[Rfam]
RNA sequence: GUCUGGGCCCCACGCAAUGGGUCCCUCGAAUCGUGUCAGGACGGGAACGUAGCAGCACUAAGAGGAUCCUCCCAUGUGACGUGGAUACACCUAUUCAAC
Numbered sequence: 001g002u003c004u005g006g007g008c009c010c011c012a013c014g015c016a017a018u019g020g021g022u023c024c025c026u027c028g029a030a031u032c033g034u035g036u037c038a039g040g041a042c043g044g045g046a047a048c049g050u051a052g053c054a055g056c057a058c059u060a061a062g063a064g065g066a067u068c069c070u071c072c073c074a075u076g077u078g079a080c081g082u083g084g085a086u087a088c089a090c091c092u093a094u095u096c097a098a099c
Base pairs, nucleotide, nucleotide: 004093005092006091007090010084011083012082013081014080015076017075018074019073020072021071024065025064026063027062033058034057035056036055041050042049043048
Bacterial small signal recognition particle RNA: a 99-nucleotide sequence from Oribacterium sp. C9. The base pairs follow the family's consensus structure, which is taken from published work. Its Rfam clan is "SRP clan". A reference for the family is Rosenblad et al. (2003), "SRPDB: Signal Recognition Particle Database", Nucleic Acids Res. The organism belongs to Oribacterium, within Bacteria. Rfam describes the family as follows. The signal recognition particle (SRP) is a universally conserved ribonucleoprotein involved in the co-translational targeting of proteins to membranes.